[Rfam]
Nucleotides: 126
Stems, first nucleotide, its partner, number of pairs: 001058001003056002007052003032047001034045002073119004080112004091105003
Number, partner (000 for none) and nucleotide at each position: 001058u002000a003056g004055c005000u006000a007052c008051u009050a010000u011000a012000a013000a014000u015000u016000g017000u018000u019000c020000u021000g022000c023000u024000u025000u026000u027000a028000g029000a030000a031000u032047g033000a034045a035044g036000u037000u038000u039000c040000u041000c042000a043000c044035u045034u046000g047032c048000u049000g050009u051008g052007g053000a054000c055004g056003u057000g058001a059000c060000c061000a062000u063000a064000a065000a066000a067000g068000a069000a070000u071000u072000u073119u074118c075117c076116a077000c078000u079000a080112g081111g082110u083109u084000u085000u086000c087000u088000u089000u090000c091105u092104g093103c094000u095000a096000c097000u098000u099000u100000u101000u102000a103093g104092c105091a106000a107000u108000c109083a110082a111081c112080c113000u114000g115000u116076u117075g118074g119073g120000a121000a122000c123000a124000u125000u126000a
Source information: Shown here is a 126-nucleotide RNA sequence from Fukomys damarensis, a member of the family "Small nucleolar RNA SNORA32". A search with the family's covariance model found it, with a score of 89 bits. Its family is annotated with nucleolus and RNA processing in the Gene Ontology. Rfam describes the family as follows. ACA32 is a member of the H/ACA class of snoRNA that guide the sites of modification of uridines to pseudouridines.